[Rfam]
Group II catalytic intron D1-D4-3: a 172-nucleotide RNA sequence from Pseudomonas japonica. A search with the family's covariance model found it, with a score of 87 bits. The organism belongs to Pseudomonas, within Bacteria.

RNA sequence: GACGCCGUGAGGCCAAGCUGAAAGAAGCGCGUAGCGAAGGCGCGACCGCAGGAACACGAACAGGCAGCGAGGCUGGAUGUGGGCGAUUAGCGUGCUGGGAACCGCGAAAUCCAACCGUCACCGAAAGACGCAUCCAGUAGAGCCUGGCGGCACGAGCCGAAGGUUUUGGCAC
Numbered sequence: 001g002a003c004g005c006c007g008u009g010a011g012g013c014c015a016a017g018c019u020g021a022a023a024g025a026a027g028c029g030c031g032u033a034g035c036g037a038a039g040g041c042g043c044g045a046c047c048g049c050a051g052g053a054a055c056a057c058g059a060a061c062a063g064g065c066a067g068c069g070a071g072g073c074u075g076g077a078u079g080u081g082g083g084c085g086a087u088u089a090g091c092g093u094g095c096u097g098g099g100a101a102c103c104g105c106g107a108a109a110u111c112c113a114a115c116c117g118u119c120a121c122c123g124a125a126a127g128a129c130g131c132a133u134c135c136a137g138u139a140g141a142g143c144c145u146g147g148c149g150g151c152a153c154g155a156g157c158c159g160a161a162g163g164u165u166u167u168g169g170c171a172c
Stems, first nucleotide, its partner, number of pairs: 004013003027172001029170002034164002039158003043154002046150004061146005072138003076134006085111003090105003